[Rfam]
A member of the RNA family "Selenocysteine insertion sequence 1" from Mytilus edulis, 65 nucleotides long. The match comes from Rfam's covariance-model search (39 bits). The family's RNA type in Rfam is cis-regulatory element.
RNA sequence: CGUAUAUUUUAUGAUGGUAUGAUAUUAAACCCCUAAUGGGUGGUAUUAUACUUGAUUUUAAUUUG
Numbered sequence: 001c002g003u004a005u006a007u008u009u010u011a012u013g014a015u016g017g018u019a020u021g022a023u024a025u026u027a028a029a030c031c032c033c034u035a036a037u038g039g040g041u042g043g044u045a046u047u048a049u050a051c052u053u054g055a056u057u058u059u060a061a062u063u064u065g
Stems, first nucleotide, its partner, number of pairs: 001065002004062002016052010031040003